[Rfam]
RNA: Listeria sRNA rli38
RNA sequence: AUUGAGUGGGAAUAAGAGGCUAACUUGAUUUGGUGAGAGAACGCUGAUUUAACAGCAUUUGACCUAAUCUAAAACGGACAAAUUGAUUAAAAAUAAUAUGGUUCCCUGCCAAAAACCCUGCCAAGAAAAAAUUUUGGCAGGGAAUUUUGU
Numbered sequence: 001a002u003u004g005a006g007u008g009g010g011a012a013u014a015a016g017a018g019g020c021u022a023a024c025u026u027g028a029u030u031u032g033g034u035g036a037g038a039g040a041a042c043g044c045u046g047a048u049u050u051a052a053c054a055g056c057a058u059u060u061g062a063c064c065u066a067a068u069c070u071a072a073a074a075c076g077g078a079c080a081a082a083u084u085g086a087u088u089a090a091a092a093a094u095a096a097u098a099u100g101g102u103u104c105c106c107u108g109c110c111a112a113a114a115a116c117c118c119u120g121c122c123a124a125g126a127a128a129a130a131a132u133u134u135u136g137g138c139a140g141g142g143a144a145u146u147u148u149g150u
Stems, first nucleotide, its partner, number of pairs: 008106005049081002053077001055075001058072002061069002084096001086094002113146002116142010